[Rfam]
RNA sequence: AUCAUCAUAGGAUGAAAUCAGGAAUAAUCUUAGGACACCUUCCUACACAGCUCCACCUGCUGUGGAUGAGAAGAACUUUCCGUUCUGAUGAUGAU
Numbered sequence: 001a002u003c004a005u006c007a008u009a010g011g012a013u014g015a016a017a018u019c020a021g022g023a024a025u026a027a028u029c030u031u032a033g034g035a036c037a038c039c040u041u042c043c044u045a046c047a048c049a050g051c052u053c054c055a056c057c058u059g060c061u062g063u064g065g066a067u068g069a070g071a072a073g074a075a076c077u078u079u080c081c082g083u084u085c086u087g088a089u090g091a092u093g094a095u
Base pairs, nucleotide, nucleotide: 001095002094003093004092005091006090007089
Annotation:
The family of this 95-nucleotide sequence from Ziziphus jujuba is "Small nucleolar RNA snoR31/Z110/Z27". The match comes from Rfam's covariance-model search (59 bits). Rfam classes the family as a C/D-box small nucleolar RNA. Taxonomically the source falls in Ziziphus jujuba (Eukaryota, Spermatophyta, Gunneridae, Paliureae). This family contains several related snoRNAs including R31, Z27 and Z110. The family has 8 seed sequences and 571 matches in Rfam 15.1. Its family is annotated with RNA processing and nucleolus in the Gene Ontology. Pairs were carried over by alignment from the consensus structure, which was predicted with PFOLD.